The family of this 298-nucleotide sequence from Brassica oleracea is "TeloSII non coding RNA 33". Gene Ontology term of the family: ncRNA polyadenylation.
[Rfam]
RNA sequence: CAUAUCCUCAUGUGCCAAUUUCUAAAUACAAAAGCUACACUCUCAAUCUCUUAUCUACACAAAAACAGAUAUCAACAAUCUCACACCAAAGUGUUUGAUUCACAAUUGCAACCAAAAUACAAACAAUUAAAAUAUAUAAGUAUUCUUUCAAAAUUUCAAGGUGAACUUCUGCAAAUGCAUAUACAGUAUAUUAUUUAAACUAGAGAAGCCUCCUCCUGAAGUUUCUUGUAGUUGAUUGAUAAGUACGAACGAGAAGACCGGCACCAAUGCCAAGACCAACACAGACGCCAAGUCCAAU
Number, nucleotide and partner (000 for none) at each position: 001c000002a000003u000004a000005u000006c000007c000008u000009c000010a000011u219012g000013u000014g216015c000016c000017a000018a000019u000020u000021u000022c000023u057024a056025a000026a054027u053028a052029c000030a000031a000032a041033a000034g000035c000036u000037a000038c000039a000040c000041u032042c000043u000044c000045a000046a000047u000048c000049u000050c000051u000052u028053a027054u026055c000056u024057a023058c000059a000060c000061a000062a000063a000064a000065a000066c000067a000068g000069a000070u000071a000072u000073c000074a000075a000076c000077a000078a000079u000080c000081u000082c000083a000084c000085a000086c000087c000088a000089a128090a127091g000092u125093g124094u123095u122096u121097g120098a118099u117100u116101c000102a000103c000104a000105a000106u000107u000108g000109c000110a000111a000112c000113c000114a000115a000116a100117a099118u098119a000120c097121a096122a095123a094124c093125a092126a000127u090128u089129a000130a000131a000132a000133u000134a000135u000136a000137u000138a000139a214140g213141u000142a211143u000144u000145c208146u207147u206148u205149c000150a000151a000152a000153a000154u000155u000156u204157c203158a000159a201160g200161g000162u000163g000164a000165a000166c000167u000168u000169c000170u000171g000172c000173a000174a000175a187176u185177g184178c000179a000180u000181a000182u000183a000184c177185a176186g000187u175188a000189u000190a000191u000192u000193a000194u000195u000196u000197a000198a000199a000200c160201u159202a000203g157204a156205g148206a147207a146208g145209c000210c000211u142212c000213c140214u139215c000216c014217u000218g000219a011220a000221g289222u000223u287224u285225c284226u283227u000228g280229u279230a000231g276232u275233u274234g000235a268236u267237u266238g265239a000240u000241a000242a000243g262244u261245a000246c260247g259248a000249a000250c256251g000252a000253g000254a000255a000256g250257a000258c000259c247260g246261g244262c243263a000264c000265c238266a237267a236268u235269g000270c000271c000272a000273a000274g233275a232276c231277c000278a000279a229280c228281a000282c000283a226284g225285a224286c000287g223288c000289c221290a000291a000292g000293u000294c000295c000296a000297a000298u000